Shown here is a 95-nucleotide sequence from Caenorhabditis elegans, a member of the family "mir-42 microRNA precursor family". The literature on the family includes a 2009 paper in Genome Res by de Wit et al., "Repertoire and evolution of miRNA genes in four divergent nematode species". The source organism's lineage runs through Eukaryota, Protostomia, Chromadorea, Rhabditina and Caenorhabditis. Clan: mir-36 clan. Rfam 15.1 lists 9 matches to the family in 8 species. Rfam's curators put it in the seed alignment.

RNA sequence: UUCGCGGACCUUUGUGGGUGUUUGCUUUUUCGGUGAAGUUGUCUUCCGUAGCUUCUUCUUCACCGGGUUAACAUCUACAGAGGUCCAAAAAGGGG
Numbered sequence: 001u002u003c004g005c006g007g008a009c010c011u012u013u014g015u016g017g018g019u020g021u022u023u024g025c026u027u028u029u030u031c032g033g034u035g036a037a038g039u040u041g042u043c044u045u046c047c048g049u050a051g052c053u054u055c056u057u058c059u060u061c062a063c064c065g066g067g068u069u070a071a072c073a074u075c076u077a078c079a080g081a082g083g084u085c086c087a088a089a090a091a092g093g094g095g
Stems, first nucleotide, its partner, number of pairs: 001090002006086017024068003031065008